[Rfam]
RNA: Small nucleolar RNA SNORD91 family
RNA sequence: CGUAGGAGCCGAUGAUGUUUCUUUCAAGAUGUCUGAACCUGUCUGAAGCAUCCCAGUGAUGCAAACUGUGUUGUACUGAGGCUUCUCUGCUC
Numbered sequence: 001c002g003u004a005g006g007a008g009c010c011g012a013u014g015a016u017g018u019u020u021c022u023u024u025c026a027a028g029a030u031g032u033c034u035g036a037a038c039c040u041g042u043c044u045g046a047a048g049c050a051u052c053c054c055a056g057u058g059a060u061g062c063a064a065a066c067u068g069u070g071u072u073g074u075a076c077u078g079a080g081g082c083u084u085c086u087c088u089g090c091u092c
Stems, first nucleotide, its partner, number of pairs: 004086007